RNA sequence: GGUGAUAAACUGCGGCGUGGAAUAGGCGCAGCGGACCCGGGGGCGGUACCCGGCGGCUCCACCAUCACUCCCGCUUUCGGGCGAGGGUUUUGACGGGGCCGAACUAGGAUCGACGUGUGUUCAAAGACGCUGUUUUUGCCCGGGCUGAGUAACCCGUAAAAGGCUCAAAACCAAACAAGUGCCAACGACAACGACGCACUUGCUCUUGCCGCGUAA
Numbered sequence: 001g002g003u004g005a006u007a008a009a010c011u012g013c014g015g016c017g018u019g020g021a022a023u024a025g026g027c028g029c030a031g032c033g034g035a036c037c038c039g040g041g042g043g044c045g046g047u048a049c050c051c052g053g054c055g056g057c058u059c060c061a062c063c064a065u066c067a068c069u070c071c072c073g074c075u076u077u078c079g080g081g082c083g084a085g086g087g088u089u090u091u092g093a094c095g096g097g098g099c100c101g102a103a104c105u106a107g108g109a110u111c112g113a114c115g116u117g118u119g120u121u122c123a124a125a126g127a128c129g130c131u132g133u134u135u136u137u138g139c140c141c142g143g144g145c146u147g148a149g150u151a152a153c154c155c156g157u158a159a160a161a162g163g164c165u166c167a168a169a170a171c172c173a174a175a176c177a178a179g180u181g182c183c184a185a186c187g188a189c190a191a192c193g194a195c196g197c198a199c200u201u202g203c204u205c206u207u208g209c210c211g212c213g214u215a216a
Stems, first nucleotide, its partner, number of pairs: 001140005015130004027119003031116003037053005054101007141156004
The record is a 216-nucleotide RNA sequence from Novosphingobium flavum, which matches "permuted transfer-messenger RNA" in Rfam. Lineage of the source: Bacteria > Pseudomonadota > Alphaproteobacteria > Sphingomonadaceae > Novosphingobium. Gene Ontology term of the family: RNA catabolic process.